skipping-rope RNA: an 81-nucleotide RNA sequence. The sequence is in the family's curated seed alignment. By type it is a small RNA.
RNA sequence: UGGAAUCUGAGGACGGAACAGGCAGCCGUCACGCCCCAGUGGUCUUAAAAGAGAUGUGGGAUUGCCACCCCACCUAUUUCA
Numbered sequence: 001u002g003g004a005a006u007c008u009g010a011g012g013a014c015g016g017a018a019c020a021g022g023c024a025g026c027c028g029u030c031a032c033g034c035c036c037c038a039g040u041g042g043u044c045u046u047a048a049a050a051g052a053g054a055u056g057u058g059g060g061a062u063u064g065c066c067a068c069c070c071c072a073c074c075u076a077u078u079u080c081a
Stems, first nucleotide, its partner, number of pairs: 001081006009074001012030005021066004032051001033043003056073005